Source information
Rfam assigns this 62-nucleotide RNA from Thermosinus carboxydivorans to the family "Fluoride riboswitch aptamer (crcB RNA motif)". The literature on the family includes a 2017 paper in Nat Chem Biol by Zhao et al., "An excited state underlies gene regulation of a transcriptional riboswitch".
[Rfam]
RNA sequence: UAAGUUUGCGGCGAUGGAGUUCGCCAUAAGUCCGCAUAAGCGGUAAUGACUCCUACCAGGAC
Numbered sequence: 001u002a003a004g005u006u007u008g009c010g011g012c013g014a015u016g017g018a019g020u021u022c023g024c025c026a027u028a029a030g031u032c033c034g035c036a037u038a039a040g041c042g043g044u045a046a047u048g049a050c051u052c053c054u055a056c057c058a059g060g061a062c
Stems, first nucleotide, its partner, number of pairs: 010025004016053006032043004